[Rfam]
RNA sequence: UGGAGGAUGAUGAAACAAAUCAGACGGAUUCCCACUGAUUUUACUAAAUAUGAUAGUUACCAGCUACUUCUGACUCUU
Numbered sequence: 001u002g003g004a005g006g007a008u009g010a011u012g013a014a015a016c017a018a019a020u021c022a023g024a025c026g027g028a029u030u031c032c033c034a035c036u037g038a039u040u041u042u043a044c045u046a047a048a049u050a051u052g053a054u055a056g057u058u059a060c061c062a063g064c065u066a067c068u069u070c071u072g073a074c075u076c077u078u
Stems, first nucleotide, its partner, number of pairs: 002077004
RNA: Small nucleolar RNA R12
Organism: Jatropha curcas